[Rfam]
RNA sequence: GUGUCCGGCGACCAAUACGACUUAGCCGUCCACGAGUCCCGGUGGCUAGUGUGGACCCCGUGCGCCGCCCCCGCGGUCCGCGCAUAGCCGACAGCCGUCGCACCGGAGGAGAGCUCCCUUG
Numbered sequence: 001g002u003g004u005c006c007g008g009c010g011a012c013c014a015a016u017a018c019g020a021c022u023u024a025g026c027c028g029u030c031c032a033c034g035a036g037u038c039c040c041g042g043u044g045g046c047u048a049g050u051g052u053g054g055a056c057c058c059c060g061u062g063c064g065c066c067g068c069c070c071c072c073g074c075g076g077u078c079c080g081c082g083c084a085u086a087g088c089c090g091a092c093a094g095c096c097g098u099c100g101c102a103c104c105g106g107a108g109g110a111g112a113g114c115u116c117c118c119u120u121g
Stems, first nucleotide, its partner, number of pairs: 061084004067077003087101002090099003
Dot-bracket structure: ............................................................((((..(((.....)))...))))..((.(((....)))))....................
A member of the RNA family "Streptomyces-metH RNA" from Mangrovactinospora gilvigrisea, 121 nucleotides long. It scores 54 bits against the family's covariance model. Taxonomically the source falls in Mangrovactinospora (Bacteria, Actinomycetota, Actinomycetes, Kitasatosporales).